[Rfam]
RNA sequence: CCCCUUCAAAUCCCCGCCAACUCCCCCUAUAUCCAAGAUGUUCCCUCGGGAACUAUGGGCAUAAACGCGCAUGUAAUAAGCGGAUCGGACCCGGGGGCGGUACCCGGCGGCUCCACCAAACAUCCCUUGUUGGGGGAUCAUGGGGCCGAAACAGGAUCGACGAACGUGUAAAGAUGUUGCUUUGUCCCGGUGAGAUACCACCGUUAUCGGUUCACAUAGUACAAUUGCCAACAACAAUCGUGCUCCGGUUGCCCUGGCUGCGUAAGCAGUCCGGAAUACCGAAAUCUAAGUCCUUGCGCUUAGCGGCGUAAGGCGGGGUUCGCAGGUACCUGGCAACAGAAACCUGCACU
Numbered sequence: 001c002c003c004c005u006u007c008a009a010a011u012c013c014c015c016g017c018c019a020a021c022u023c024c025c026c027c028u029a030u031a032u033c034c035a036a037g038a039u040g041u042u043c044c045c046u047c048g049g050g051a052a053c054u055a056u057g058g059g060c061a062u063a064a065a066c067g068c069g070c071a072u073g074u075a076a077u078a079a080g081c082g083g084a085u086c087g088g089a090c091c092c093g094g095g096g097g098c099g100g101u102a103c104c105c106g107g108c109g110g111c112u113c114c115a116c117c118a119a120a121c122a123u124c125c126c127u128u129g130u131u132g133g134g135g136g137a138u139c140a141u142g143g144g145g146c147c148g149a150a151a152c153a154g155g156a157u158c159g160a161c162g163a164a165c166g167u168g169u170a171a172a173g174a175u176g177u178u179g180c181u182u183u184g185u186c187c188c189g190g191u192g193a194g195a196u197a198c199c200a201c202c203g204u205u206a207u208c209g210g211u212u213c214a215c216a217u218a219g220u221a222c223a224a225u226u227g228c229c230a231a232c233a234a235c236a237a238u239c240g241u242g243c244u245c246c247g248g249u250u251g252c253c254c255u256g257g258c259u260g261c262g263u264a265a266g267c268a269g270u271c272c273g274g275a276a277u278a279c280c281g282a283a284a285u286c287u288a289a290g291u292c293c294u295u296g297c298g299c300u301u302a303g304c305g306g307c308g309u310a311a312g313g314c315g316g317g318g319u320u321c322g323c324a325g326g327u328a329c330c331u332g333g334c335a336a337c338a339g340a341a342a343c344c345u346g347c348a349c350u
Stems, first nucleotide, its partner, number of pairs: 040053005057187005067180002069177004081166002085163003091107005108148007188203004194213002197211003316331004322347006
A member of the RNA family "Alphaproteobacteria transfer-messenger RNA" from Pseudooceanicola albus, 350 nucleotides long. It scores 319 bits against the family's covariance model. Bacterial tmRNA, also known as 10Sa RNA or SsrA, is named for its dual tRNA and mRNA-like properties. Its role is to liberate the mRNA from a stalled ribosome. The family's RNA type in Rfam is non-coding RNA gene. The family's consensus secondary structure is taken from published work.